RNA sequence: AUACUUACUUGGCAGGGGAGAUACCAUGGUCGCGAAGGUGGUUUUCCCAGGGCGAAGCUUGUCCUUGGCGCUCCGGAUAUGCUGACCCCUGCGAUUUCCCCAAAUGUAGGACACGCAAUUGCACAAUUUGUGGUAGUGGGGGACUGCAUUCACACUUUCCCCUG
Numbered sequence: 001a002u003a004c005u006u007a008c009u010u011g012g013c014a015g016g017g018g019a020g021a022u023a024c025c026a027u028g029g030u031c032g033c034g035a036a037g038g039u040g041g042u043u044u045u046c047c048c049a050g051g052g053c054g055a056a057g058c059u060u061g062u063c064c065u066u067g068g069c070g071c072u073c074c075g076g077a078u079a080u081g082c083u084g085a086c087c088c089c090u091g092c093g094a095u096u097u098c099c100c101c102a103a104a105u106g107u108a109g110g111a112c113a114c115g116c117a118a119u120u121g122c123a124c125a126a127u128u129u130g131u132g133g134u135a136g137u138g139g140g141g142g143a144c145u146g147c148a149u150u151c152a153c154a155c156u157u158u159c160c161c162c163u164g
Base pairs, nucleotide, nucleotide: 012122013121014120015119016048017047018046019045020044021043023042024041025040026039027038049090050089051088052087054086056083057082058081060079061078062077063076064075093116095113096111097110099109138163139162140161141160142159143158146155
RNA: U1 spliceosomal RNA